Rfam assigns this 110-nucleotide RNA sequence from Jeotgalibacillus campisalis to the family "epsC RNA".
RNA sequence: UGGUGAUAUCUCCUUACUGUUAUCAAUGGAGGUACUCGUUCAUGCCGUGGGUUGAAAGACCUUAGACGCGAGUCGUCGCUGGUGUGGGGUGAGGGUGGGUUGAAUGCCCA
Numbered sequence: 001u002g003g004u005g006a007u008a009u010c011u012c013c014u015u016a017c018u019g020u021u022a023u024c025a026a027u028g029g030a031g032g033u034a035c036u037c038g039u040u041c042a043u044g045c046c047g048u049g050g051g052u053u054g055a056a057a058g059a060c061c062u063u064a065g066a067c068g069c070g071a072g073u074c075g076u077c078g079c080u081g082g083u084g085u086g087g088g089g090u091g092a093g094g095g096u097g098g099g100u101u102g103a104a105u106g107c108c109c110a
Stems, first nucleotide, its partner, number of pairs: 001019004007034007035093004039088008049062005065077004096110005
It is annotated as a cis-regulatory element.